[Rfam]
RNA sequence: UGUGCAGUUGGAGGAUGAAGCUGUAGAGUGAUCCAUCGGCAGAGUGCCCUGUCACAAUGCUGACACUCAAGCUGCUGACAACGCACG
Numbered sequence: 001u002g003u004g005c006a007g008u009u010g011g012a013g014g015a016u017g018a019a020g021c022u023g024u025a026g027a028g029u030g031a032u033c034c035a036u037c038g039g040c041a042g043a044g045u046g047c048c049c050u051g052u053c054a055c056a057a058u059g060c061u062g063a064c065a066c067u068c069a070a071g072c073u074g075c076u077g078a079c080a081a082c083g084c085a086c087g
Stems, first nucleotide, its partner, number of pairs: 002086004007082003010076002013034004018029001036063005044055003
A member of the RNA family "Small nucleolar RNA SNORD71" from Chelydra serpentina, 87 nucleotides long. The family's consensus secondary structure was predicted with RNAalifold. From the family's description: snoRNA HBII-239 belongs to the family of C/D snoRNAs.It is the human orthologue of the mouse MBII-239 described and is predicted to guide 2'O-ribose methylation of 5.8S rRNA on residue U14. For this family Rfam cites "RNomics: an experimental approach that identifies 201 candidates for novel, small, non-messenger RNAs in mouse" (Huttenhofer et al., EMBO J, 2001). Rfam links the family to the GO terms nucleolus and RNA processing.